[Rfam]
RNA: mir-7 microRNA precursor family
Organism: Triplophysa rosa
RNA sequence: AUGUCCAUUGCCGUGUGGAAGACUAGUGAUUUUGUUGUUUUUGUUGUCAAAAGAAGCAACAAAUCAUAGUCUACCUCAGAGCUGUGAGAU
Numbered sequence: 001a002u003g004u005c006c007a008u009u010g011c012c013g014u015g016u017g018g019a020a021g022a023c024u025a026g027u028g029a030u031u032u033u034g035u036u037g038u039u040u041u042u043g044u045u046g047u048c049a050a051a052a053g054a055a056g057c058a059a060c061a062a063a064u065c066a067u068a069g070u071c072u073a074c075c076u077c078a079g080a081g082c083u084g085u086g087a088g089a090u
Stems, first nucleotide, its partner, number of pairs: 002089001004087002008084001011081001014078002017075002020072005026067007034060006